[Rfam]
RNA sequence: AGAAAAGCAGGGGUCUGGUGUGUCUAUGGCCUGGCCUCUCGUAAACUUUAGGGAAACUAAUUUCAAUAUUAUUGGGUGAACCAUUGCUAAUAAUCGAUGGCAUAUGGUUCAGUAAAUAAUGAUACACAU
Numbered sequence: 001a002g003a004a005a006a007g008c009a010g011g012g013g014u015c016u017g018g019u020g021u022g023u024c025u026a027u028g029g030c031c032u033g034g035c036c037u038c039u040c041g042u043a044a045a046c047u048u049u050a051g052g053g054a055a056a057c058u059a060a061u062u063u064c065a066a067u068a069u070u071a072u073u074g075g076g077u078g079a080a081c082c083a084u085u086g087c088u089a090a091u092a093a094u095c096g097a098u099g100g101c102a103u104a105u106g107g108u109u110c111a112g113u114a115a116a117u118a119a120u121g122a123u124a125c126a127c128a129u
Stems, first nucleotide, its partner, number of pairs: 005048003011037002014034002017031001064121002067118004077111007

Record summary
Rfam assigns this 129-nucleotide RNA sequence from Dendrobium catenatum to the family "Small nucleolar RNA snoR74". The match comes from Rfam's covariance-model search (87 bits). Lineage of the source: Eukaryota > Streptophytina > Orchidaceae > Dendrobieae > Dendrobium. By type it is an H/ACA-box small nucleolar RNA.